[Rfam]
RNA sequence: UUAACUCAACUUUGUAAGGGAUUGGAACGUUUGCCUACGGCUGCCGCUAGGGGCGCUGUUCCAACUCCAUACUUUGAGUUA
Number, nucleotide and partner (000 for none) at each position: 001u000002u000003a000004a000005c000006u000007c000008a075009a074010c000011u000012u000013u000014g072015u071016a070017a000018g068019g000020g066021a000022u064023u063024g062025g061026a060027a059028c058029g057030u000031u000032u000033g000034c052035c051036u050037a000038c000039g047040g000041c000042u000043g000044c000045c000046g000047c039048u000049a000050g036051g035052g034053g000054c000055g000056c000057u029058g028059u027060u026061c025062c024063a023064a022065c000066u020067c000068c018069a000070u016071a015072c014073u000074u009075u008076g000077a000078g000079u000080u000081a000
Rfam assigns this 81-nucleotide RNA from Bombyx mori to the family "mir-2807 microRNA precursor family".
The family has 8 seed sequences and 5,120 matches in Rfam 15.1.
Its family is annotated with RISC complex and miRNA-mediated post-transcriptional gene silencing in the Gene Ontology.
A reference for the family is Cai et al. (2010), "Novel microRNAs in silkworm (Bombyx mori)", Funct Integr Genomics.
The base pairs follow the family's consensus structure, which was predicted with RNAalifold.
Taxonomically the source falls in Bombyx (Eukaryota, Metazoa, Panorpida, Amphiesmenoptera).